[Rfam]
RNA sequence: CACGUGCUCCGGGGUCGGUGUAAUUCCGAGCCGGCGGUGACAGUCCGCGACCCGCACGGUCCGCAAGGAUCGGGCGGUUGACCUGGUGGAACUCCAGGACCGACGGUGAAAGUCCGGAUGGGAGGAUCACGUG
Numbered sequence: 001c002a003c004g005u006g007c008u009c010c011g012g013g014g015u016c017g018g019u020g021u022a023a024u025u026c027c028g029a030g031c032c033g034g035c036g037g038u039g040a041c042a043g044u045c046c047g048c049g050a051c052c053c054g055c056a057c058g059g060u061c062c063g064c065a066a067g068g069a070u071c072g073g074g075c076g077g078u079u080g081a082c083c084u085g086g087u088g089g090a091a092c093u094c095c096a097g098g099a100c101c102g103a104c105g106g107u108g109a110a111a112g113u114c115c116g117g118a119u120g121g122g123a124g125g126a127u128c129a130c131g132u133g
Stems, first nucleotide, its partner, number of pairs: 003131004008126003016028003030113002032102002034048004043100002052077004082098005104116003
Dot-bracket structure: ..((((.(((.....(((.......))).[[((((((.....[[))))...((((..................))))....(((((.......)))))]])).(((.....]]))).......))).))))..